[Rfam]
RNA sequence: UGUGAGGUUGUUACGAUUAAGACGCAAUUGCUUCUUGUACAGAUUGUGUAUUAAUAU
Numbered sequence: 001u002g003u004g005a006g007g008u009u010g011u012u013a014c015g016a017u018u019a020a021g022a023c024g025c026a027a028u029u030g031c032u033u034c035u036u037g038u039a040c041a042g043a044u045u046g047u048g049u050a051u052u053a054a055u056a057u
Stems, first nucleotide, its partner, number of pairs: 018037005024031002
RNA: Plastid-rps18 3UTR RNA